This 73-nucleotide sequence from Aspergillus nidulans belongs to the Rfam family "tRNA". Transfer RNA (tRNA) molecules are approximately 80 nucleotides in length. The sequence is in the family's curated seed alignment.

RNA sequence: GGGUUAGUAGUUUAAUAGGUAAAGCGCUUUUUUGUCAAGGAAGUUUAUGCCGGUUCAAGUCCGGCCUAACCCG
Numbered sequence: 001g002g003g004u005u006a007g008u009a010g011u012u013u014a015a016u017a018g019g020u021a022a023a024g025c026g027c028u029u030u031u032u033u034g035u036c037a038a039g040g041a042a043g044u045u046u047a048u049g050c051c052g053g054u055u056c057a058a059g060u061c062c063g064g065c066c067u068a069a070c071c072c073g
Base pairs, nucleotide, nucleotide: 001072002071003070004069005068006067007066010025011024012023013022027043028042029041030040031039049065050064051063052062053061